[Rfam]
RNA sequence: GGUUGGACAAAAUUAUGCUUGGUUCCAAGAAAUUUGUUUCUAGGGUGGGAAACU
Numbered sequence: 001g002g003u004u005g006g007a008c009a010a011a012a013u014u015a016u017g018c019u020u021g022g023u024u025c026c027a028a029g030a031a032a033u034u035u036g037u038u039u040c041u042a043g044g045g046u047g048g049g050a051a052a053c054u
Base pairs, nucleotide, nucleotide: 003028004027005026006023008021009020010019036053037052038051039050040049041048
RNA: Na+ riboswitch aptamer (DUF1646)
Organism: Clostridium thailandense